[Rfam]
RNA sequence: UACUUUUGCACCCGUAUCCGAAAGACGGGUAUAUACAUAAGAAUCAUUUAAAUAAUAUUGGCAUG
Numbered sequence: 001u002a003c004u005u006u007u008g009c010a011c012c013c014g015u016a017u018c019c020g021a022a023a024g025a026c027g028g029g030u031a032u033a034u035a036c037a038u039a040a041g042a043a044u045c046a047u048u049u050a051a052a053u054a055a056u057a058u059u060g061g062c063a064u065g
Base pairs, nucleotide, nucleotide: 014032015031016030017029018028019027